[Rfam]
RNA: Saccharopolyspora sRNA 350
RNA sequence: CGGGCGGUGAACUUCCAGGUGCUCUCACCCAGCAGCGCCUCAUCGCCGAAGUGGUCGCCGUCGACCAGGGUGCCCAGCGAGGUGGUGUUGCCGAACUCGCCGGUGCCCAGCUUGGUGAUCCGGCCGUGCGCCACCAGGAUCACCCGGUCCGCCGGCUGGCCCUGGGUGACCAGCACCUCGCCCGCGGCGAAGCUCUGCUGCUCGAACCGGUCGGCCAGCGCGGUGAGCACCUCCUGGUCCUCGAACCCGCGCAGCAGCGGCAGUUCGCCCAGUUCCGGCGGCACCACCCUGAUCUGGGUGCCCACGUUGCUGAAGCUGAGCCGCCCGUCGCCGACCGCGUAGGUCAUCCGCCGGUUGACCCGGUACGCGCCGCCGUUGGCCUCCACCCAGGGCAGCACCUUGAGCAGCCAGCGCGGGCUGAUGCCCUGCAUCUGCGGCACGGACUUGGUGGUGGACGCCAGAUUCCGCGCCGCCGCCGUGCCCAGGCUCAGUUGAGCGCCGU
Numbered sequence: 001c002g003g004g005c006g007g008u009g010a011a012c013u014u015c016c017a018g019g020u021g022c023u024c025u026c027a028c029c030c031a032g033c034a035g036c037g038c039c040u041c042a043u044c045g046c047c048g049a050a051g052u053g054g055u056c057g058c059c060g061u062c063g064a065c066c067a068g069g070g071u072g073c074c075c076a077g078c079g080a081g082g083u084g085g086u087g088u089u090g091c092c093g094a095a096c097u098c099g100c101c102g103g104u105g106c107c108c109a110g111c112u113u114g115g116u117g118a119u120c121c122g123g124c125c126g127u128g129c130g131c132c133a134c135c136a137g138g139a140u141c142a143c144c145c146g147g148u149c150c151g152c153c154g155g156c157u158g159g160c161c162c163u164g165g166g167u168g169a170c171c172a173g174c175a176c177c178u179c180g181c182c183c184g185c186g187g188c189g190a191a192g193c194u195c196u197g198c199u200g201c202u203c204g205a206a207c208c209g210g211u212c213g214g215c216c217a218g219c220g221c222g223g224u225g226a227g228c229a230c231c232u233c234c235u236g237g238u239c240c241u242c243g244a245a246c247c248c249g250c251g252c253a254g255c256a257g258c259g260g261c262a263g264u265u266c267g268c269c270c271a272g273u274u275c276c277g278g279c280g281g282c283a284c285c286a287c288c289c290u291g292a293u294c295u296g297g298g299u300g301c302c303c304a305c306g307u308u309g310c311u312g313a314a315g316c317u318g319a320g321c322c323g324c325c326c327g328u329c330g331c332c333g334a335c336c337g338c339g340u341a342g343g344u345c346a347u348c349c350g351c352c353g354g355u356u357g358a359c360c361c362g363g364u365a366c367g368c369g370c371c372g373c374c375g376u377u378g379g380c381c382u383c384c385a386c387c388c389a390g391g392g393c394a395g396c397a398c399c400u401u402g403a404g405c406a407g408c409c410a411g412c413g414c415g416g417g418c419u420g421a422u423g424c425c426c427u428g429c430a431u432c433u434g435c436g437g438c439a440c441g442g443a444c445u446u447g448g449u450g451g452u453g454g455a456c457g458c459c460a461g462a463u464u465c466c467g468c469g470c471c472g473c474c475g476c477c478g479u480g481c482c483c484a485g486g487c488u489c490a491g492u493u494g495a496g497c498g499c500c501g502u
Base pairs, nucleotide, nucleotide: 006387007386008385009384011382014379015378018325019324021322023319024318025313026312032310033309034308035307036306037305044300045299046298047297049295051230052229055226056225057224058223059222060221061220063107065105072100074099076097077096081092082091083090114219116217117216119214120213124209126207127206128203130201131200135197136196137195141192147188150186151185152184154182155181156180157175158174164171165170232292233291237287238286241283246280248278251275253274254273255272257268258267259266326339327338328337349375350374352372353371354370359367388428389427390426391425392424393423394422396420397419400415404412434473435472436471437470440467441466442465443464445461446460447459448458449457478499479498481496483494484493485492